RNA sequence: UGGCCAAGGAUGAAAACAAUAAUCUGAUUCCUAACAUAAUUUCAGUGAUACGCAAAAAUCUGAUGGAUAAAAGGAUUUUCUGAGGCCA
Numbered sequence: 001u002g003g004c005c006a007a008g009g010a011u012g013a014a015a016a017c018a019a020u021a022a023u024c025u026g027a028u029u030c031c032u033a034a035c036a037u038a039a040u041u042u043c044a045g046u047g048a049u050a051c052g053c054a055a056a057a058a059u060c061u062g063a064u065g066g067a068u069a070a071a072a073g074g075a076u077u078u079u080c081u082g083a084g085g086c087c088a
Stems, first nucleotide, its partner, number of pairs: 002087004